RNA sequence: GGGCAGUCGGUGGAUGCCUUGGCACCAAGAGCCGAUGAAGGACGUGGGAACCUGCGAUAAGCCCCGGGGAGUUGGUAAACGAGCGUUGAUCCGGGGAUGUCCGAAUGGGGAAACCUCGAAGGGAACCGGAGUCAUGUCCGGCGACCCCUGCCUGAAUGUAUAGGGCAGUGGGAGGGAACGCGGGGAAGUGAAACAUCUCAGUACCCGCAGGAAGAGAAAACAACAGUGAUUCCGUUAGUAGUGGCGAGCGAACGCGGAAGAGGCCAAACCGUAUGUGUGUGAGAGCUGGCAGGCGUUGCAUGUGCGGGGUAGUGGGGCCAUCUUGAUCGGGCUGUCGACCGGUCGAGGAGCAGGAUCGUUGAAGUUGAAGUGUUCUGGGAAGGCACGGCAGAGCGGGUAAUACCCCCGUAGGCGUAAGACGAUCUCUCCUGGAUGUCACCCCAAGUAGCACCCAACUCCUGGAAUUGGGUGUGAAUCUGGCGGGACCACCCGCUAAGCCUAAAUACUCCUUGGUGACCGAUAGCGGACAAGUACCGUGAGGGAAAGGUGAAAAGUACCCCGGGAGGGGAGUGAAAUAGUACCUGAAACCGGCUGCCUACA
Numbered sequence: 001g002g003g004c005a006g007u008c009g010g011u012g013g014a015u016g017c018c019u020u021g022g023c024a025c026c027a028a029g030a031g032c033c034g035a036u037g038a039a040g041g042a043c044g045u046g047g048g049a050a051c052c053u054g055c056g057a058u059a060a061g062c063c064c065c066g067g068g069g070a071g072u073u074g075g076u077a078a079a080c081g082a083g084c085g086u087u088g089a090u091c092c093g094g095g096g097a098u099g100u101c102c103g104a105a106u107g108g109g110g111a112a113a114c115c116u117c118g119a120a121g122g123g124a125a126c127c128g129g130a131g132u133c134a135u136g137u138c139c140g141g142c143g144a145c146c147c148c149u150g151c152c153u154g155a156a157u158g159u160a161u162a163g164g165g166c167a168g169u170g171g172g173a174g175g176g177a178a179c180g181c182g183g184g185g186a187a188g189u190g191a192a193a194c195a196u197c198u199c200a201g202u203a204c205c206c207g208c209a210g211g212a213a214g215a216g217a218a219a220a221c222a223a224c225a226g227u228g229a230u231u232c233c234g235u236u237a238g239u240a241g242u243g244g245c246g247a248g249c250g251a252a253c254g255c256g257g258a259a260g261a262g263g264c265c266a267a268a269c270c271g272u273a274u275g276u277g278u279g280u281g282a283g284a285g286c287u288g289g290c291a292g293g294c295g296u297u298g299c300a301u302g303u304g305c306g307g308g309g310u311a312g313u314g315g316g317g318c319c320a321u322c323u324u325g326a327u328c329g330g331g332c333u334g335u336c337g338a339c340c341g342g343u344c345g346a347g348g349a350g351c352a353g354g355a356u357c358g359u360u361g362a363a364g365u366u367g368a369a370g371u372g373u374u375c376u377g378g379g380a381a382g383g384c385a386c387g388g389c390a391g392a393g394c395g396g397g398u399a400a401u402a403c404c405c406c407c408g409u410a411g412g413c414g415u416a417a418g419a420c421g422a423u424c425u426c427u428c429c430u431g432g433a434u435g436u437c438a439c440c441c442c443a444a445g446u447a448g449c450a451c452c453c454a455a456c457u458c459c460u461g462g463a464a465u466u467g468g469g470u471g472u473g474a475a476u477c478u479g480g481c482g483g484g485a486c487c488a489c490c491c492g493c494u495a496a497g498c499c500u501a502a503a504u505a506c507u508c509c510u511u512g513g514u515g516a517c518c519g520a521u522a523g524c525g526g527a528c529a530a531g532u533a534c535c536g537u538g539a540g541g542g543a544a545a546g547g548u549g550a551a552a553a554g555u556a557c558c559c560c561g562g563g564a565g566g567g568g569a570g571u572g573a574a575a576u577a578g579u580a581c582c583u584g585a586a587a588c589c590g591g592c593u594g595c596c597u598a599c600a
Stems, first nucleotide, its partner, number of pairs: 001597010016582001017547002021518002023515007030507002032175002040102003043056003062096007071084003107116003117143002121139003145172003148168006179210001180208005190197002220227002230503001231258005241249002261500004269307011314442003319435004350428001353425008364413003370386004375382001389393001395407003448472008479494005534541002557568004
RNA: Bacterial large subunit ribosomal RNA, nucleotides 15 to 614
Organism: Desertihabitans brevis